[Rfam]
RNA sequence: ACAGGUCGCCGGACGGUCGCGGCAGCGGGAACGCUGACGAGGAACGUCCGGGCUCCGCAGAGCACAGCGGUGGGUAACACCCACCCGGGGCGACCCGCGGGCACGUGCAACAGAGAGCAGACCGCCUGCCUGCCUGGUGCAGGCCGGUAAGGGUGAAACGGUGGUGUAAGAGACCACCAGGGUUCCGGGUGACCGGAAUCGCUGGGUAAACCCCGCUGGGAGCAAGAUCAGACAGACAGCGUCCGAGGGCUGCUCGCCCGAGCUGUCGGGUGGAUCGCUCGAGGCCGUCGGUGACGGCGGCCCUAGACAGAUGACCGUCGAACGGUGUCCGGGCAACCGGCCCGUGGACAGAACCCGGCGUACAGGCGGCCUGUCCUC
Numbered sequence: 001a002c003a004g005g006u007c008g009c010c011g012g013a014c015g016g017u018c019g020c021g022g023c024a025g026c027g028g029g030a031a032c033g034c035u036g037a038c039g040a041g042g043a044a045c046g047u048c049c050g051g052g053c054u055c056c057g058c059a060g061a062g063c064a065c066a067g068c069g070g071u072g073g074g075u076a077a078c079a080c081c082c083a084c085c086c087g088g089g090g091c092g093a094c095c096c097g098c099g100g101g102c103a104c105g106u107g108c109a110a111c112a113g114a115g116a117g118c119a120g121a122c123c124g125c126c127u128g129c130c131u132g133c134c135u136g137g138u139g140c141a142g143g144c145c146g147g148u149a150a151g152g153g154u155g156a157a158a159c160g161g162u163g164g165u166g167u168a169a170g171a172g173a174c175c176a177c178c179a180g181g182g183u184u185c186c187g188g189g190u191g192a193c194c195g196g197a198a199u200c201g202c203u204g205g206g207u208a209a210a211c212c213c214c215g216c217u218g219g220g221a222g223c224a225a226g227a228u229c230a231g232a233c234a235g236a237c238a239g240c241g242u243c244c245g246a247g248g249g250c251u252g253c254u255c256g257c258c259c260g261a262g263c264u265g266u267c268g269g270g271u272g273g274a275u276c277g278c279u280c281g282a283g284g285c286c287g288u289c290g291g292u293g294a295c296g297g298c299g300g301c302c303c304u305a306g307a308c309a310g311a312u313g314a315c316c317g318u319c320g321a322a323c324g325g326u327g328u329c330c331g332g333g334c335a336a337c338c339g340g341c342c343c344g345u346g347g348a349c350a351g352a353a354c355c356c357g358g359c360g361u362a363c364a365g366g367c368g369g370c371c372u373g374u375c376c377u378c
Base pairs, nucleotide, nucleotide: 001374002373003372004371005370006369007368008367009366010365011363012319013318014317015316016315017314018313020039021038023036024035025034026033027032044361045360046359048358049357050356051355052354053222054221055220056219060255061254062253063252065218066217067216068215069214070084071083072082073081074080085099086097087096088095089094100213101212105211106210107207108206122152123151124148125147126146128144129143130142131141132140160178161177162176163175164174165173180202181200182199183198184197185196186195187194188193226276227275228274229273235267236266237265238264239263240262247259248258249257250256283302284301285300286299287298288297289296290295
A member of the RNA family "Bacterial RNase P class A" from Brevibacterium sp. CS2, 378 nucleotides long. The family's consensus secondary structure is taken from published work. NCBI's taxonomy places the organism under Bacteria, Bacillati, Micrococcales, Brevibacteriaceae, Brevibacterium. Rfam classes the family as a ribozyme.